RNA sequence: AGCUUCAAGUGAUGGACAGAUGCCUAGGGAGCACUAUGACCGAUUGGGAUGUAUUCGUACUGUCUGAUGGGCCC
Dot-bracket structure: .(.((((...(((((...(((((((.((..(.........)..)).))..)))))....)))))...)))).).
Numbered sequence: 001a002g003c004u005u006c007a008a009g010u011g012a013u014g015g016a017c018a019g020a021u022g023c024c025u026a027g028g029g030a031g032c033a034c035u036a037u038g039a040c041c042g043a044u045u046g047g048g049a050u051g052u053a054u055u056c057g058u059a060c061u062g063u064c065u066g067a068u069g070g071g072c073c074c
Stems, first nucleotide, its partner, number of pairs: 002073001004071004011064005019055005024048002027045002031041001
This 74-nucleotide RNA sequence from Otolemur garnettii belongs to the Rfam family "Small nucleolar RNA ZL2". The source organism's lineage runs through Eukaryota, Gnathostomata, Tetrapoda, Theria and Otolemur. The match comes from Rfam's covariance-model search (56 bits). By type it is a C/D-box small nucleolar RNA. Rfam 15.1 lists 126 matches to the family in 125 species.